RNA sequence: CUCAGAGUUAGUCACUGUCAUUAUCCUCUUGUAGGAUAUGGGAAUACUAAUGGUGA
Numbered sequence: 001c002u003c004a005g006a007g008u009u010a011g012u013c014a015c016u017g018u019c020a021u022u023a024u025c026c027u028c029u030u031g032u033a034g035g036a037u038a039u040g041g042g043a044a045u046a047c048u049a050a051u052g053g054u055g056a
Base pairs, nucleotide, nucleotide: 007051008050009049010048011047012046018041019040020039021038025035026034027033